[Rfam]
Rfam assigns this 76-nucleotide sequence from Xanthomonas oryzae to the family "Xanthomonas sRNA sX9". It is annotated as a small RNA. The literature on the family includes a 2011 paper in Nucleic Acids Res by Schmidtke et al., "Genome-wide transcriptome analysis of the plant pathogen Xanthomonas identifies sRNAs with putative virulence functions". Taxonomically the source falls in Xanthomonas oryzae pv. oryzae (Bacteria, Pseudomonadota, Lysobacterales, Lysobacteraceae). It scores 46 bits against the family's covariance model.

RNA sequence: AUGUACCUGGCGUAGACCGCGGUUCGUCUGCGCCGUCCGCGCGCACCUGACGACUGCGCGCUCCCUUGUGGAUGCC
Numbered sequence: 001a002u003g004u005a006c007c008u009g010g011c012g013u014a015g016a017c018c019g020c021g022g023u024u025c026g027u028c029u030g031c032g033c034c035g036u037c038c039g040c041g042c043g044c045a046c047c048u049g050a051c052g053a054c055u056g057c058g059c060g061c062u063c064c065c066u067u068g069u070g071g072a073u074g075c076c
Stems, first nucleotide, its partner, number of pairs: 002016001004014003020035004025030001047074001051070002